[Rfam]
RNA sequence: CGCCUUUGUGUUGCCCAUUCACUUUUGGAAACUAGUGGAUGUGGUGUCAAAAAAGGCGAACACAAAACACUUUCGCAGCUUUUUUUCCUGCCCUUGUAUUUGAUGUCUUUGGUGUAGGAGCUGCGUAAGUAACAUAC
Dot-bracket structure: .((((((.((.((((((((((((..........)))))))).)))).))..))))))...........(((((.(((((......((((((((..(..........)...)).)))))))))))).)))).......

The family of this 137-nucleotide RNA sequence from Bos taurus is "Small nucleolar RNA SNORA13".
The family has 50 seed sequences and 1,034 matches in Rfam 15.1.
The source organism's lineage runs through Eukaryota, Gnathostomata, Tetrapoda, Mammalia and Bos.
From the family's description: ACA13 is a member of the H/ACA class of snoRNA that guide the sites of modification of uridines to pseudouridines.
The sequence is in the family's curated seed alignment.
By type it is an H/ACA-box small nucleolar RNA.